[Rfam]
RNA sequence: UGAUGUUAUGAUGAUGGGCAAAAUGUUCAACUGCUCUGAAUGAGCUGAGUGAAAAAUAGCCAUCUGAACAUCU
Numbered sequence: 001u002g003a004u005g006u007u008a009u010g011a012u013g014a015u016g017g018g019c020a021a022a023a024u025g026u027u028c029a030a031c032u033g034c035u036c037u038g039a040a041u042g043a044g045c046u047g048a049g050u051g052a053a054a055a056a057u058a059g060c061c062a063u064c065u066g067a068a069c070a071u072c073u
Stems, first nucleotide, its partner, number of pairs: 002072005
Dot-bracket structure: .(((((.............................................................))))).
Small nucleolar RNA Z40: a 73-nucleotide RNA sequence from Cnephaeus nilssonii.
The match comes from Rfam's covariance-model search (86 bits).
The literature on the family includes a 2003 paper in Nucleic Acids Res by Chen et al., "The high diversity of snoRNAs in plants: identification and comparative study of 120 snoRNA genes from Oryza sativa".
Gene Ontology terms of the family: RNA processing and nucleolus.
Rfam classes the family as a C/D-box small nucleolar RNA.